Shown here is a 48-nucleotide RNA from Thalassobacter sp. 16PALIMAR09, a member of the family "SAM/SAH riboswitch aptamer". For this family Rfam cites "The structure of the SAM/SAH-binding riboswitch" (Weickhmann et al., Nucleic Acids Res, 2019). Its family is annotated with regulation of gene expression and S-adenosylmethionine metabolic process in the Gene Ontology. The family's consensus secondary structure is taken from published work.

RNA sequence: GACCCGUCACAACGGCUUCCUGGCGUGACGGCGUAACCCAACGGAGCA
Numbered sequence: 001g002a003c004c005c006g007u008c009a010c011a012a013c014g015g016c017u018u019c020c021u022g023g024c025g026u027g028a029c030g031g032c033g034u035a036a037c038c039c040a041a042c043g044g045a046g047c048a
Base pairs, nucleotide, nucleotide: 004031005030006029007028008027009026010025013022014021015047016046017045019044020043